Shown here is a 74-nucleotide RNA from Caenorhabditis briggsae, a member of the family "Caenorhabditis snoRNA ceN53". The organism belongs to Caenorhabditis, within Eukaryota. Rfam 15.1 lists 14 matches to the family in 12 species. Its family is annotated with nucleolus and RNA processing in the Gene Ontology. The base pairs follow the family's consensus structure. It is one of the family's seed sequences.
RNA sequence: UGGCAAUGAUUGAAUUAUCAUUGAGCCAAUCCUUUUCUGAACUCCAUGAGGAUGGAAAUGAUAGGUCUGAGCCA
Number, nucleotide and partner (000 for none) at each position: 001u074002g073003g072004c071005a000006a000007u000008g000009a000010u000011u000012g000013a000014a000015u000016u000017a000018u000019c000020a000021u000022u000023g000024a000025g000026c000027c000028a000029a000030u000031c000032c000033u000034u000035u000036u000037c000038u000039g000040a000041a000042c000043u000044c000045c000046a000047u000048g000049a000050g000051g000052a000053u000054g000055g000056a000057a000058a000059u000060g000061a000062u000063a000064g000065g000066u000067c000068u000069g000070a000071g004072c003073c002074a001